This 35-nucleotide RNA from Myotis myotis belongs to the Rfam family "Iron response element I". On this family, see Hentze et al., Science 1987: "Identification of the iron-responsive element for the translational regulation of human ferritin mRNA". The match comes from Rfam's covariance-model search (36 bits).
[Rfam]
RNA sequence: CUGUCUCUGGCUUCAACAAUGUUUGGAUGAAACAG
Numbered sequence: 001c002u003g004u005c006u007c008u009g010g011c012u013u014c015a016a017c018a019a020u021g022u023u024u025g026g027a028u029g030a031a032a033c034a035g
Stems, first nucleotide, its partner, number of pairs: 001035004006031001008029001010028001012027005017021001